Source information:
The record is a 146-nucleotide RNA sequence from Fragaria vesca, which matches "Small nucleolar RNA snoR138" in Rfam. The base pairs follow the family's consensus structure, which was predicted with mfold. It is one of the family's seed sequences. By type it is an H/ACA-box small nucleolar RNA. A reference for the family is Chen and Wu (2009), "Mining small RNA sequencing data: a new approach to identify small nucleolar RNAs in Arabidopsis", Nucleic Acids Res.
RNA sequence: UCUGCCCACGAAUAACCAAUCUGUGAAACGAUACCGUUUGGUUCAGACAUGGGCGCACAGCGAUUCGAAGCCAUCUAAGGGAUGACCAACUCUACUAUUCCUUGUGUUCAUCCUUUUGUUGUUUUACAACUCCGCUUCGGACAUUU
Numbered sequence: 001u002c003u004g005c006c007c008a009c010g011a012a013u014a015a016c017c018a019a020u021c022u023g024u025g026a027a028a029c030g031a032u033a034c035c036g037u038u039u040g041g042u043u044c045a046g047a048c049a050u051g052g053g054c055g056c057a058c059a060g061c062g063a064u065u066c067g068a069a070g071c072c073a074u075c076u077a078a079g080g081g082a083u084g085a086c087c088a089a090c091u092c093u094a095c096u097a098u099u100c101c102u103u104g105u106g107u108u109c110a111u112c113c114u115u116u117u118g119u120u121g122u123u124u125u126a127c128a129a130c131u132c133c134g135c136u137u138c139g140g141a142c143a144u145u146u
Base pairs, nucleotide, nucleotide: 003055004054005053006052007051008050014043015042016041017040018039019038021036023034024033025032066139067138068137069136070135071134078114079113080112082111085102088099089098118133121130122129